Nucleotides: 084
Stems, first nucleotide, its partner, number of pairs: 001084002007078005013059003023052007037071002040066004
Number, partner (000 for none) and nucleotide at each position: 001084g002083c003000g004000c005000a006000a007078g008077c009076g010075g011074g012000a013059g014058g015057c016000u017000c018000u019000g020000a021000c022000a023052c024051g025050c026049g027048g028047u029046c030000c031000a032000a033000a034000c035000c036000c037071g038070g039000c040066c041065g042064c043063c044000g045000g046029g047028a048027c049026c050025g051024c052023g053000c054000c055000g056000a057015g058014c059013c060000a061000c062000u063043g064042g065041c066040g067000a068000g069000a070038c071037c072000g073000c074011c075010c076009c077008g078007c079000a080000a081000a082000g083002g084001c
Source information: This 84-nucleotide sequence belongs to the Rfam family "c-di-GMP-II-GAG riboswitch aptamer". Pairs were carried over by alignment from the consensus structure, which is taken from published work. On this family, see Weinberg et al., Proc Natl Acad Sci U S A 2017: "Bioinformatic analysis of riboswitch structures uncovers variant classes with altered ligand specificity". Rfam's curators put it in the seed alignment.